[Rfam]
RNA sequence: GUGCAUCCAGUAGGAAUUGAACCUACGAAUUCGCCAAUUAUGAGUUGGGCGCUUUAGCCAUAGAUGC
Numbered sequence: 001g002u003g004c005a006u007c008c009a010g011u012a013g014g015a016a017u018u019g020a021a022c023c024u025a026c027g028a029a030u031u032c033g034c035c036a037a038u039u040a041u042g043a044g045u046u047g048g049g050c051g052c053u054u055u056a057g058c059c060a061u062a063g064a065u066g067c
Base pairs, nucleotide, nucleotide: 003067004066005065006064007063010026011025012024013023014022040061041060042059044058045057046056047055048054049053
Shown here is a 67-nucleotide RNA sequence from Gossypium laxum, a member of the family "Plastid-ycf2 5UTR RNA". Taxonomically the source falls in Gossypium (Eukaryota, Tracheophyta, Euphyllophyta, malvids). Pairs were carried over by alignment from the consensus structure, which was predicted with LocARNA. Plastid ycf2 is a non-coding RNA (ncRNA) recognised in plastids. It was found in the prime untranslated region (5UTR) of ycf2 genes, it presents a tRNA-like motif which suggests it can be involved in mRNA maturation, particularly involved in defining the precise 5' end of the transcript.